Shown here is a 52-nucleotide sequence from Fuscibacter oryzae, a member of the family "terC RNA".
It scores 58 bits against the family's covariance model.
RNA sequence: UUUGCGGGCCGGGCCCCUCUGACGACGCUUGUCGUGAUGUCGGACCGCAUCG
Numbered sequence: 001u002u003u004g005c006g007g008g009c010c011g012g013g014c015c016c017c018u019c020u021g022a023c024g025a026c027g028c029u030u031g032u033c034g035u036g037a038u039g040u041c042g043g044a045c046c047g048c049a050u051c052g
Stems, first nucleotide, its partner, number of pairs: 006046002009043004022035005